[Rfam]
RNA sequence: GCGGAUGUAGUUCAUCGGUAGAACGAAAGCUUCCCAAGCUUUAGAGGCGGGUCCGACUCCCGUCAUCCGCU
Numbered sequence: 001g002c003g004g005a006u007g008u009a010g011u012u013c014a015u016c017g018g019u020a021g022a023a024c025g026a027a028a029g030c031u032u033c034c035c036a037a038g039c040u041u042u043a044g045a046g047g048c049g050g051g052u053c054c055g056a057c058u059c060c061c062g063u064c065a066u067c068c069g070c071u
Stems, first nucleotide, its partner, number of pairs: 001070007010024004026042005047063005
RNA: tRNA
Organism: Bifidobacterium magnum